[Rfam]
RNA sequence: AGUCACAAGUUUGAGGCCAUAGGAGAAGCACUCACAGUGUGACCAUGUCAGAUUCCAACAAAUCUGCGAAUUCCACU
Numbered sequence: 001a002g003u004c005a006c007a008a009g010u011u012u013g014a015g016g017c018c019a020u021a022g023g024a025g026a027a028g029c030a031c032u033c034a035c036a037g038u039g040u041g042a043c044c045a046u047g048u049c050a051g052a053u054u055c056c057a058a059c060a061a062a063u064c065u066g067c068g069a070a071u072u073c074c075a076c077u
Stems, first nucleotide, its partner, number of pairs: 015044002018041001021077002025073003028040003049066006
Mammalian CPEB3 ribozyme: a 77-nucleotide sequence from Crocodylus porosus. The family's consensus secondary structure is taken from published work.